This 259-nucleotide sequence from Cytobacillus solani belongs to the Rfam family "BsrG".
The literature on the family includes a 2013 paper in Nucleic Acids Res by Jahn and Brantl, "One antitoxin--two functions: SR4 controls toxin mRNA decay and translation".
The family's RNA type in Rfam is small RNA.
[Rfam]
RNA sequence: UAUAAUAGCAAUAGUAUAGGAGACUCAAGGGUGGUUAGCAUUCCCUAGUGAAAGGGGGUGCUGCCUAUGUCGAUUUUUCAGACAAUCAUGAUCAUGAUUGCGUUUGCAAGUUUGAUUGUAUCGAUCAUCGCUUUAACACAGAAAAAGUAAUCCACCCUUGAGCUCGCCCAGCAAGAGAGAUGGAUUACUUUUUUAAUCUGCUGAUCCCCUUAAGGGACCUGGCUAUUGCAUCGACCGUUCAGUGUAACCAGCACUGGCG
Numbered sequence: 001u002a003u004a005a006u007a008g009c010a011a012u013a014g015u016a017u018a019g020g021a022g023a024c025u026c027a028a029g030g031g032u033g034g035u036u037a038g039c040a041u042u043c044c045c046u047a048g049u050g051a052a053a054g055g056g057g058g059u060g061c062u063g064c065c066u067a068u069g070u071c072g073a074u075u076u077u078u079c080a081g082a083c084a085a086u087c088a089u090g091a092u093c094a095u096g097a098u099u100g101c102g103u104u105u106g107c108a109a110g111u112u113u114g115a116u117u118g119u120a121u122c123g124a125u126c127a128u129c130g131c132u133u134u135a136a137c138a139c140a141g142a143a144a145a146a147g148u149a150a151u152c153c154a155c156c157c158u159u160g161a162g163c164u165c166g167c168c169c170a171g172c173a174a175g176a177g178a179g180a181u182g183g184a185u186u187a188c189u190u191u192u193u194u195a196a197u198c199u200g201c202u203g204a205u206c207c208c209c210u211u212a213a214g215g216g217a218c219c220u221g222g223c224u225a226u227u228g229c230a231u232c233g234a235c236c237g238u239u240c241a242g243u244g245u246a247a248c249c250a251g252c253a254c255u256g257g258c259g
Base pairs, nucleotide, nucleotide: 001230003228004227005226007224008223009222011220017204019202020201022199024162025161026160027159028158029157030156031155033152034151035150036149038061039060040059042057043056044055045054046053069132071130072129073128074127083096084095107123109121173191174190205217206216207215208214236259237258238257240256241255242254243253244252245251